[Rfam]
RNA sequence: ACGGUGUUCCGCUGCAAAGAUUACGGAUUGCAAGAGCAUCUG
Number, nucleotide and partner (000 for none) at each position: 001a000002c000003g040004g039005u038006g037007u036008u035009c034010c000011g000012c000013u032014g031015c030016a029017a028018a000019g000020a000021u000022u000023a000024c000025g000026g000027a000028u017029u016030g015031c014032a013033a000034g009035a008036g007037c006038a005039u004040c003041u000042g000
Record summary:
The record is a 42-nucleotide RNA from Planococcus rifietoensis, which matches "Ribosomal protein L19 leader" in Rfam. Rfam classes the family as a cis-regulatory leader. This family is a putative r-protein leader autoregulatory structure found in B. subtilis and other low-GC Gram-positive bacteria. A search with the family's covariance model found it, with a score of 41 bits. For this family Rfam cites "Diverse mechanisms for regulating ribosomal protein synthesis in Escherichia coli" (Zengel and Lindahl, Prog Nucleic Acid Res Mol Biol, 1994).